[Rfam]
RNA sequence: AAAUGUUAAUUACAAUAACACACACGUAUCGACACGUAACUCGGGGUGCUGCUUUCAUAUUUUGAAACUGGUCGAGUUUAUGGGAUACGUGGAGGCCUAAC
Numbered sequence: 001a002a003a004u005g006u007u008a009a010u011u012a013c014a015a016u017a018a019c020a021c022a023c024a025c026g027u028a029u030c031g032a033c034a035c036g037u038a039a040c041u042c043g044g045g046g047u048g049c050u051g052c053u054u055u056c057a058u059a060u061u062u063u064g065a066a067a068c069u070g071g072u073c074g075a076g077u078u079u080a081u082g083g084g085a086u087a088c089g090u091g092g093a094g095g096c097c098u099a100a101c
Stems, first nucleotide, its partner, number of pairs: 023091008035082005040076004048072004